[Rfam]
RNA sequence: GGCCUCCCUUUGCAGGGUGAUCGAUUGUGAACCCCACAAUCGAUCACCCUGCAGAGGGAGGCC
Numbered sequence: 001g002g003c004c005u006c007c008c009u010u011u012g013c014a015g016g017g018u019g020a021u022c023g024a025u026u027g028u029g030a031a032c033c034c035c036a037c038a039a040u041c042g043a044u045c046a047c048c049c050u051g052c053a054g055a056g057g058g059a060g061g062c063c
Stems, first nucleotide, its partner, number of pairs: 001063029
RNA: mir-9242 microRNA precursor family
Organism: Myotis myotis